Rfam assigns this 145-nucleotide sequence from Paludibacterium purpuratum to the family "FMN riboswitch aptamer (RFN element)". About the family: The RFN element is a highly conserved domain that is found frequently in the 5'-untranslated regions of prokaryotic mRNAs that encode for flavin mononucleotide (FMN) biosynthesis and transport proteins. This element is a metabolite-dependent riboswitch that directly binds FMN in the absence of proteins. In Bacillus subtilis, the riboswitch most likely controls gene expression by causing premature transcription termination within the 5' untranslated region of the ribDEAHT operon and precluding access to the ribosome-binding site of ypaA mRNA.The FMN riboswitch structure, reported in present an FMN-bound six-stem junction, adopts a butterfly-like scaffold, stapled together by opposingly directed but nearly identically folded peripheral domains.
[Rfam]
RNA sequence: CAACGUCUUCAGGGCGGGGUGAAACUCCCCACCGGCGGUAGGCUGGCAAAUGCCGGCGAGCCCGCGAGCGCCUGGCGAGCCAGGGACAGCAGAUCCGGUCGAAUGCCGGAGCCGACGGUCAUAGUCCGGAUGAAAGAAGACUCGC
Numbered sequence: 001c002a003a004c005g006u007c008u009u010c011a012g013g014g015c016g017g018g019g020u021g022a023a024a025c026u027c028c029c030c031a032c033c034g035g036c037g038g039u040a041g042g043c044u045g046g047c048a049a050a051u052g053c054c055g056g057c058g059a060g061c062c063c064g065c066g067a068g069c070g071c072c073u074g075g076c077g078a079g080c081c082a083g084g085g086a087c088a089g090c091a092g093a094u095c096c097g098g099u100c101g102a103a104u105g106c107c108g109g110a111g112c113c114g115a116c117g118g119u120c121a122u123a124g125u126c127c128g129g130a131u132g133a134a135a136g137a138a139g140a141c142u143c144g145c
Stems, first nucleotide, its partner, number of pairs: 005141006017029003031125002033114002035065004060112002068090002094110005116128003